[Rfam]
RNA: Selenocysteine transfer RNA
Organism: Lachnospiraceae bacterium 1_4_56FAA
RNA sequence: GGGGGCAGAAAGGCGACUGGUGUGUCUCCUGGUCUUCAAAACCAGUGUGGGGCUUAAGGAAGGAGUCCCGGGUGGGUUCGAUUCCCACAUGUCCCC
Numbered sequence: 001g002g003g004g005g006c007a008g009a010a011a012g013g014c015g016a017c018u019g020g021u022g023u024g025u026c027u028c029c030u031g032g033u034c035u036u037c038a039a040a041a042c043c044a045g046u047g048u049g050g051g052g053c054u055u056a057a058g059g060a061a062g063g064a065g066u067c068c069c070g071g072g073u074g075g076g077u078u079c080g081a082u083u084c085c086c087a088c089a090u091g092u093c094c095c096c
Stems, first nucleotide, its partner, number of pairs: 001096007008088001011027005017022001029045005048070007073087004